[Rfam]
RNA: U11 spliceosomal RNA
RNA sequence: AAAAAGGGCUUCUGUCGUUAAGUGGCACACGUAGGGCAUCUCUAUUGCUCUACGUGCGGAAUCGACAUCAAGAGAUUUCGGAAGCGUAAUUUUUGUUACCUGGGCUGCUAGUGAUCGUUGGUCCUGGCGCCCUG
Numbered sequence: 001a002a003a004a005a006g007g008g009c010u011u012c013u014g015u016c017g018u019u020a021a022g023u024g025g026c027a028c029a030c031g032u033a034g035g036g037c038a039u040c041u042c043u044a045u046u047g048c049u050c051u052a053c054g055u056g057c058g059g060a061a062u063c064g065a066c067a068u069c070a071a072g073a074g075a076u077u078u079c080g081g082a083a084g085c086g087u088a089a090u091u092u093u094u095g096u097u098a099c100c101u102g103g104g105c106u107g108c109u110a111g112u113g114a115u116c117g118u119u120g121g122u123c124c125u126g127g128c129g130c131c132c133u134g
Stems, first nucleotide, its partner, number of pairs: 008085005013027005028056011057080007102132004107128005113123004
Dot-bracket structure: .......((((((((((.....)))))(((((((((((.......)))))))))))(((((((..........))))))))))))................((((.(((((.((((...)))))))))))))..